[Rfam]
RNA: Small nucleolar RNA snoR2/U65
Organism: Cucumis melo
RNA sequence: GGUUUGAUGCCACAUUGUUGAUAGCUCACUCUGGCAGUGACCAGCGAUGCUAUGAUUGAACCAAAAACACAAGUUCUUUCACACCUUGAUAGGAAUCUCUUCGUCUUUUUAUUAUAGAUUUACAGAGCCAUUUCUUGUGAUUACAUUU
Numbered sequence: 001g002g003u004u005u006g007a008u009g010c011c012a013c014a015u016u017g018u019u020g021a022u023a024g025c026u027c028a029c030u031c032u033g034g035c036a037g038u039g040a041c042c043a044g045c046g047a048u049g050c051u052a053u054g055a056u057u058g059a060a061c062c063a064a065a066a067a068c069a070c071a072a073g074u075u076c077u078u079u080c081a082c083a084c085c086u087u088g089a090u091a092g093g094a095a096u097c098u099c100u101u102c103g104u105c106u107u108u109u110u111a112u113u114a115u116a117g118a119u120u121u122a123c124a125g126a127g128c129c130a131u132u133u134c135u136u137g138u139g140a141u142u143a144c145a146u147u148u
Base pairs, nucleotide, nucleotide: 002061003060004059005058006057007056008055009053013049014048015047016046017045018044020042022040024035025034026033079140080139081138082137083136092129093128097125098124103119104118105117